[Rfam]
RNA: Manganese Mn2+ riboswitch aptamer (yybP-ykoY)
RNA sequence: GGGAGUAGUCUGCCGUGCCGUGCACGGUGCCUGCGUCAACAUACUUGAUCAACCGAUCAUGGCGCCGGCGAUCCGAUCACAGUGACCUGUAGUCACGUGAUCCGGUUUGACGAGACUCAUGAUACGCGCAGCCACCGGGUGGAUCGUUGCGUGUGUCAUGGUGCUCGCAAACCUGAUCC
Numbered sequence: 001g002g003g004a005g006u007a008g009u010c011u012g013c014c015g016u017g018c019c020g021u022g023c024a025c026g027g028u029g030c031c032u033g034c035g036u037c038a039a040c041a042u043a044c045u046u047g048a049u050c051a052a053c054c055g056a057u058c059a060u061g062g063c064g065c066c067g068g069c070g071a072u073c074c075g076a077u078c079a080c081a082g083u084g085a086c087c088u089g090u091a092g093u094c095a096c097g098u099g100a101u102c103c104g105g106u107u108u109g110a111c112g113a114g115a116c117u118c119a120u121g122a123u124a125c126g127c128g129c130a131g132c133c134a135c136c137g138g139g140u141g142g143a144u145c146g147u148u149g150c151g152u153g154u155g156u157c158a159u160g161g162u163g164c165u166c167g168c169a170a171a172c173c174u175g176a177u178c179c
Base pairs, nucleotide, nucleotide: 013027014026015025029069030068031067033065034064035063036062037061038060046059047058048057049056050055070178071177072176073175075173